RNA sequence: CGAGCUAACAAGAUGACCGCGGGUGCUAAUCCGAAAGGUGGCAUCUGAGGAAAGUCCGAGCUGCAUAGAGCAGGGUGCUGGAUAACGUCCAGUGGGGGCGACCCUAAGGAAAGUGCCACAGAAAACAAACCGCCAAGGUUACUCUUGGUAAGGAUGAAACGGUGCGGUAAGAGCGCACCAGAAGUCAGGUGACUGACUUGCUUGGUAAACCCCACCCGCAGCAAGACCGAAUAGGGGCAGGAUGAGGUUGCUCGCUGACUGUCCGGGUAGGUCGCUGGAGGCGUCAGGUAACUGGCGUCCAAGAUAAAUGGUCAUCCUCGACAGAACUCGGCUUAUUAGUUAACUCGCAUC
Numbered sequence: 001c002g003a004g005c006u007a008a009c010a011a012g013a014u015g016a017c018c019g020c021g022g023g024u025g026c027u028a029a030u031c032c033g034a035a036a037g038g039u040g041g042c043a044u045c046u047g048a049g050g051a052a053a054g055u056c057c058g059a060g061c062u063g064c065a066u067a068g069a070g071c072a073g074g075g076u077g078c079u080g081g082a083u084a085a086c087g088u089c090c091a092g093u094g095g096g097g098g099c100g101a102c103c104c105u106a107a108g109g110a111a112a113g114u115g116c117c118a119c120a121g122a123a124a125a126c127a128a129a130c131c132g133c134c135a136a137g138g139u140u141a142c143u144c145u146u147g148g149u150a151a152g153g154a155u156g157a158a159a160c161g162g163u164g165c166g167g168u169a170a171g172a173g174c175g176c177a178c179c180a181g182a183a184g185u186c187a188g189g190u191g192a193c194u195g196a197c198u199u200g201c202u203u204g205g206u207a208a209a210c211c212c213c214a215c216c217c218g219c220a221g222c223a224a225g226a227c228c229g230a231a232u233a234g235g236g237g238c239a240g241g242a243u244g245a246g247g248u249u250g251c252u253c254g255c256u257g258a259c260u261g262u263c264c265g266g267g268u269a270g271g272u273c274g275c276u277g278g279a280g281g282c283g284u285c286a287g288g289u290a291a292c293u294g295g296c297g298u299c300c301a302a303g304a305u306a307a308a309u310g311g312u313c314a315u316c317c318u319c320g321a322c323a324g325a326a327c328u329c330g331g332c333u334u335a336u337u338a339g340u341u342a343a344c345u346c347g348c349a350u351c
Stems, first nucleotide, its partner, number of pairs: 001347004006342004011336001012316007020047009052334003056331005061221004068253004073217005078092005093107001094105004108212002113210002115206003130153002132149007161179006181201001182199007225273004235264006246256003280299008
Dot-bracket structure: ((((.((((.((((((((.(((((((((..........)))))))))....[[[.[[[[[((((...[[[[.((((((((((.....)))))(((((....)))).)((...(((((............(((((((((....)))))))..)).......((((((.......)))))).((((((((....))))))).)..)))..)))))))))))))...((((......((((((.....(((.]]]])))..)))))).....))))......((((((((....))))))))..........)))))))..........]]]]]]]].)..)))).))))....